Bacterial large subunit ribosomal RNA: a 261-nucleotide part of an RNA from Furfurilactobacillus rossiae. Rfam links the family to the GO terms ribosome and structural constituent of ribosome. It scores 2926 bits against the family's covariance model. The family's consensus secondary structure is taken from published work. Taxonomically the source falls in Furfurilactobacillus rossiae (Bacteria, Bacillati, Bacilli, Lactobacillales).
RNA sequence: GGAAAUUUGAGAGGAGCUGUCCUUAGUACGAGAGGACCGGGAUGGACAUACCGCUGGUGUACCAGUUGUGCCGCCAGGCGCAUCGCUGGGUAGCUAUGUAUGGAUGAGAUAAACGCUGAAAGCAUCUAAGUGUGAAACUCGCCUCGAGAUGAGAUUUCCCAUUCCUAUAUGGAAGUAAGACCCCUCAGAGAUGAUGAGGUAGAUAGGCUAGAAGUGGAAGUGUGGCGACACAUGGAGCGGACUAGUACUAAUCGGUCGAGG
Dot-bracket structure: ((((((((..((((..(((((((...............))))))).(((((...(((....(((((((((((....))))))..)))))....))).)))))...(((....(((((...........)))))....))).))))......))))))))..(((.......))).(..(((((((((.......)))))....((((((((..(.....(((((....)))))....)...))))).)))...)))).)..